The record is a 103-nucleotide RNA from Chitiniphilus eburneus, which matches "Manganese Mn2+ riboswitch aptamer (yybP-ykoY)" in Rfam.
[Rfam]
RNA sequence: CUUCAGGGGAGUAGUCGCCCGCGCGGUUCCGGCCGUGUCGGGGGGUACGUCAACAUACUUGGGCCGCAGCCCAUGGCGUAUCCGGUCCGCGCAUCGCGGGCCU
Numbered sequence: 001c002u003u004c005a006g007g008g009g010a011g012u013a014g015u016c017g018c019c020c021g022c023g024c025g026g027u028u029c030c031g032g033c034c035g036u037g038u039c040g041g042g043g044g045g046u047a048c049g050u051c052a053a054c055a056u057a058c059u060u061g062g063g064c065c066g067c068a069g070c071c072c073a074u075g076g077c078g079u080a081u082c083c084g085g086u087c088c089g090c091g092c093a094u095c096g097c098g099g100g101c102c103u
Stems, first nucleotide, its partner, number of pairs: 019041003043083010060073005
A search with the family's covariance model found it, with a score of 58 bits. This RNA was originally discovered in E. coli during a large scale screen and was named SraF. The family was later found to exist upstream of related families of protein genes in many bacteria, including the the yybP and ykoK genes in B. subtilis. The specific functions of these proteins are unknown, but this structured RNA element may be involved in their genetic regulation as a riboswitch. The pairing is the family consensus, mapped onto this sequence.